[Rfam]
RNA sequence: UGCACUGUUUUGAUAUCUGCAUCCAGCAGUAUUCUCCUGAUGGGGUGUUCAAAAAACAGUGCCACAGUAAUUCAGCAUCUGGCAUCGUUGAUUUUCAUGCUGUUAUGCUUGUUAAACCUGGUAUAUCUGUUGGAACAUGU
Numbered sequence: 001u002g003c004a005c006u007g008u009u010u011u012g013a014u015a016u017c018u019g020c021a022u023c024c025a026g027c028a029g030u031a032u033u034c035u036c037c038u039g040a041u042g043g044g045g046u047g048u049u050c051a052a053a054a055a056a057c058a059g060u061g062c063c064a065c066a067g068u069a070a071u072u073c074a075g076c077a078u079c080u081g082g083c084a085u086c087g088u089u090g091a092u093u094u095u096c097a098u099g100c101u102g103u104u105a106u107g108c109u110u111g112u113u114a115a116a117c118c119u120g121g122u123a124u125a126u127c128u129g130u131u132g133g134a135a136c137a138u139g140u
Stems, first nucleotide, its partner, number of pairs: 002062006016055001018053001019048006025041001027039003065129003070124002072121004081109005

Rfam assigns this 140-nucleotide RNA from Chelydra serpentina to the family "Small nucleolar RNA SNORA8".
The match comes from Rfam's covariance-model search (108 bits).
Gene Ontology terms of the family: nucleolus and RNA processing.
The family's RNA type in Rfam is H/ACA-box small nucleolar RNA.
From the family's description: ACA8 is a member of the H/ACA class of snoRNA that guide the sites of modification of uridines to pseudouridines.